[Rfam]
RNA sequence: CCAAGAGGAUCUUCAACUAAAAUCGCUCACGUCCUGUGAGCAACGUUGAAGCCACCACAUCCUGUGGA
Numbered sequence: 001c002c003a004a005g006a007g008g009a010u011c012u013u014c015a016a017c018u019a020a021a022a023u024c025g026c027u028c029a030c031g032u033c034c035u036g037u038g039a040g041c042a043a044c045g046u047u048g049a050a051g052c053c054a055c056c057a058c059a060u061c062c063u064g065u066g067g068a
Stems, first nucleotide, its partner, number of pairs: 011051007026040005055067004